[Rfam]
Overview:
mir-192/215 microRNA precursor family: a 77-nucleotide RNA sequence from Geotrypetes seraphini. The match comes from Rfam's covariance-model search (72 bits). Rfam's curators write: This family represents the human microRNA (miRNA) precursors mir-192 and mir-215. Animal miRNAs are transcribed as ~70nt precursors and subsequently processed by the Dicer enzyme to give a ~22nt product. In this case the mature sequence comes from the 5' arm of the precursor. Lineage of the source: Eukaryota > Gnathostomata > Sarcopterygii > Dipnotetrapodomorpha > Geotrypetes.
RNA sequence: UCAGGGCAAUGACCUAUGGAUUGACAGCCAGUUCUGCUUUGCUCUCUGUCUGUCAGUCCUGUAGGCCACAGCUCCGG
Numbered sequence: 001u002c003a004g005g006g007c008a009a010u011g012a013c014c015u016a017u018g019g020a021u022u023g024a025c026a027g028c029c030a031g032u033u034c035u036g037c038u039u040u041g042c043u044c045u046c047u048g049u050c051u052g053u054c055a056g057u058c059c060u061g062u063a064g065g066c067c068a069c070a071g072c073u074c075c076g077g
Base pairs, nucleotide, nucleotide: 001077002076004074005073006072007071010068011067013065014064015063016062018059019058020057021056022055023054024053025052026051027050029048030047031046